[Rfam]
RNA sequence: GGCGGUCUUCGGUAGUGGCUGCCGGUGACGCGAGUCCCCGGCCGCUUCGAUCGACGGCCGUA
Number, nucleotide and partner (000 for none) at each position: 001g000002g061003c060004g059005g058006u057007c056008u000009u054010c053011g052012g051013u050014a000015g000016u000017g046018g045019c044020u000021g042022c041023c040024g039025g038026u000027g036028a035029c034030g000031c000032g000033a000034g029035u028036c027037c000038c025039c024040g023041g022042c021043c000044g019045c018046u017047u000048c000049g000050a013051u012052c011053g010054a009055c000056g007057g006058c005059c004060g003061u002062a000
Description:
This 62-nucleotide sequence from Mycobacterium sp. MCS belongs to the Rfam family "Actino-pnp RNA". The family's consensus secondary structure is taken from published work. Rfam classes the family as a cis-regulatory element.